msiK RNA: a 58-nucleotide RNA sequence from Gordonia jinhuaensis.

RNA sequence: UGGCCUUUCACUUCACUCGGAUCGUGCGGCACGUUCCUGCCGCUGAAGGGAUGAACAG
Numbered sequence: 001u002g003g004c005c006u007u008u009c010a011c012u013u014c015a016c017u018c019g020g021a022u023c024g025u026g027c028g029g030c031a032c033g034u035u036c037c038u039g040c041c042g043c044u045g046a047a048g049g050g051a052u053g054a055a056c057a058g
Stems, first nucleotide, its partner, number of pairs: 009050001011048005026043006
The organism belongs to Gordonia, within Bacteria. It is annotated as a cis-regulatory element.